[Rfam]
RNA sequence: GGUUUCGUAGUGUAGUGGUUAGCACUGAGGACUUUGAAUCCUCCAACCCGGGUUCGAGUCCCGGCGAGACCU
Numbered sequence: 001g002g003u004u005u006c007g008u009a010g011u012g013u014a015g016u017g018g019u020u021a022g023c024a025c026u027g028a029g030g031a032c033u034u035u036g037a038a039u040c041c042u043c044c045a046a047c048c049c050g051g052g053u054u055c056g057a058g059u060c061c062c063g064g065c066g067a068g069a070c071c072u
Base pairs, nucleotide, nucleotide: 001071002070003069004068005067006066007065010025011024012023013022027043028042029041030040031039048064049063050062051061052060
RNA: tRNA
Organism: Plasmodium knowlesi